Rfam assigns this 68-nucleotide sequence to the family "tRNA".
[Rfam]
RNA sequence: GGUAAAAUGGCUGAGCAAAGCAUUAGACUGUAAAUCUAAAGAUAGAGGUUUGACUCCUCUUUUUACCA
Numbered sequence: 001g002g003u004a005a006a007a008u009g010g011c012u013g014a015g016c017a018a019a020g021c022a023u024u025a026g027a028c029u030g031u032a033a034a035u036c037u038a039a040a041g042a043u044a045g046a047g048g049u050u051u052g053a054c055u056c057c058u059c060u061u062u063u064u065a066c067c068a
Stems, first nucleotide, its partner, number of pairs: 001067007010021003023039005044060005
Transfer RNA (tRNA) molecules are approximately 80 nucleotides in length.